[Rfam]
RNA sequence: GAAACGCGAACCAAGCAGUCACUCGCCAGUGGCGUAAGACUUGGAGCGGACGAGCGCAAGCACGUCCUACA
Dot-bracket structure: ..........(((((..(((((......)))))......)))))...(((((.((....)).)))))....